[Rfam]
RNA sequence: GAGAUGAAAUCAGUGUUUGGAUAUGUGAUUUGACGCUAAUUUCAUCUCAUG
Numbered sequence: 001g002a003g004a005u006g007a008a009a010u011c012a013g014u015g016u017u018u019g020g021a022u023a024u025g026u027g028a029u030u031u032g033a034c035g036c037u038a039a040u041u042u043c044a045u046c047u048c049a050u051g
Stems, first nucleotide, its partner, number of pairs: 001048010012037005017028003